Shown here is a 72-nucleotide RNA sequence from Araneus ventricosus, a member of the family "mir-153 microRNA precursor family". NCBI's taxonomy places the organism under Eukaryota, Eumetazoa, Chelicerata, Orbiculariae, Araneus. The base pairs follow the family's consensus structure, which was predicted with RNAalifold.

[Rfam]
RNA sequence: UUGCCCAUCAUUUUUGUGAUUGUUGCAAUUUUAUUACUGAAAGAAUUGCAUAGUCACAAAAGUGAUGGGUGU
Numbered sequence: 001u002u003g004c005c006c007a008u009c010a011u012u013u014u015u016g017u018g019a020u021u022g023u024u025g026c027a028a029u030u031u032u033a034u035u036a037c038u039g040a041a042a043g044a045a046u047u048g049c050a051u052a053g054u055c056a057c058a059a060a061a062g063u064g065a066u067g068g069g070u071g072u
Stems, first nucleotide, its partner, number of pairs: 002071005008065013024050007